[Rfam]
RNA: Small nucleolar RNA snoR104
Organism: Dorcoceras hygrometricum
RNA sequence: AGGAAGCAUCCAGAAGCUGAGAUGUUAACUGAUAUAAUCUUCCUAAAUUGAACCUCAUUGUUUUCCUUGCAGUGCCUCAGUAACUCUGCAAGUCAAAAUUGAGGUACAUGA
Numbered sequence: 001a002g003g004a005a006g007c008a009u010c011c012a013g014a015a016g017c018u019g020a021g022a023u024g025u026u027a028a029c030u031g032a033u034a035u036a037a038u039c040u041u042c043c044u045a046a047a048u049u050g051a052a053c054c055u056c057a058u059u060g061u062u063u064u065c066c067u068u069g070c071a072g073u074g075c076c077u078c079a080g081u082a083a084c085u086c087u088g089c090a091a092g093u094c095a096a097a098a099u100u101g102a103g104g105u106a107c108a109u110g111a
Stems, first nucleotide, its partner, number of pairs: 001030002005026006055104002066092007074084001